[Rfam]
RNA: UnaL2 LINE 3' element
Organism: Coregonus sp. 'balchen'
RNA sequence: UGCACACAAUACUGUAAGUUGCUUUGGAUAAAAGCAGCUGCUAAAUGGCUUAUA
Numbered sequence: 001u002g003c004a005c006a007c008a009a010u011a012c013u014g015u016a017a018g019u020u021g022c023u024u025u026g027g028a029u030a031a032a033a034g035c036a037g038c039u040g041c042u043a044a045a046u047g048g049c050u051u052a053u054a
Stems, first nucleotide, its partner, number of pairs: 013043001014041003020036006